[Rfam]
RNA sequence: UUAGCUAUUUUAGAUAGCGUUUGUAAACAUGUCACUCAUGGAUACAAACGUUAACCUUGUAUCUAUGAUGGCUAAAGCAUUUUUUGUUGGAUUUGUUUGCCACAUAGCAAUUGCUCUGAAUGGCUAAACUUUCUAACAAAUAAAAGACAGGUAUGAUUUUAUCAUUAUUUUAUUAUUAGAA
Number, nucleotide and partner (000 for none) at each position: 001u075002u074003a073004g072005c071006u070007a069008u000009u000010u000011u065012a064013g063014a062015u061016a060017g000018c000019g049020u048021u047022u046023g045024u044025a043026a000027a000028c040029a039030u038031g000032u000033c000034a000035c000036u000037c000038a030039u029040g028041g000042a000043u025044a024045c023046a022047a021048a020049c019050g000051u000052u059053a058054a000055c000056c000057u000058u053059g052060u016061a015062u014063c013064u012065a011066u000067g000068a000069u007070g006071g005072c004073u003074a002075a001076a000077g000078c000079a000080u147081u146082u145083u144084u143085u142086g141087u140088u139089g000090g000091a000092u000093u000094u000095g000096u000097u000098u000099g124100c123101c122102a121103c000104a000105u118106a117107g116108c000109a000110a000111u000112u000113g000114c000115u000116c107117u106118g105119a000120a000121u102122g101123g100124c099125u000126a000127a000128a000129c000130u000131u000132u000133c000134u000135a000136a000137c000138a000139a088140a087141u086142a085143a084144a083145a082146g081147a080148c000149a000150g163151g162152u000153a000154u000155g000156a000157u000158u000159u000160u000161a000162u151163c150164a000165u000166u000167a000168u000169u000170u000171u000172a000173u000174u000175a000176u000177u000178a000179g000180a000181a000
Enterococcus sRNA 2410: a 181-nucleotide RNA from Vagococcus humatus. It is annotated as a small RNA. A reference for the family is Sinel et al. (2017), "Small RNAs in vancomycin-resistant Enterococcus faecium involved in daptomycin response and resistance", Sci Rep. The source organism's lineage runs through Bacteria, Bacillota, Lactobacillales, Enterococcaceae and Vagococcus. Rfam's curators write: Produced as 2 transcripts on Northern blot. Expressed in mid, late exponential and early stationary phases of growth.